[Rfam]
RNA sequence: CUUUCCGAGGAGCGUUGCAAGGCCGCCUGUCGCCACGACAGCCGCCCCAGGCUCGGAAAUCCAAUUGCAACCGCGCUCACCCGCA
Numbered sequence: 001c002u003u004u005c006c007g008a009g010g011a012g013c014g015u016u017g018c019a020a021g022g023c024c025g026c027c028u029g030u031c032g033c034c035a036c037g038a039c040a041g042c043c044g045c046c047c048c049a050g051g052c053u054c055g056g057a058a059a060u061c062c063a064a065u066u067g068c069a070a071c072c073g074c075g076c077u078c079a080c081c082c083g084c085a
Stems, first nucleotide, its partner, number of pairs: 002059007021046003025042002
Annotation
Shown here is an 85-nucleotide RNA from Rhizobacter sp. Root29, a member of the family "SAH (S-adenosyl-L-homocysteine) riboswitch aptamer". NCBI's taxonomy places the organism under Bacteria, Pseudomonadota, Betaproteobacteria, Sphaerotilaceae, Rhizobacter. A search with the family's covariance model found it, with a score of 63 bits. The family's consensus secondary structure is taken from published work.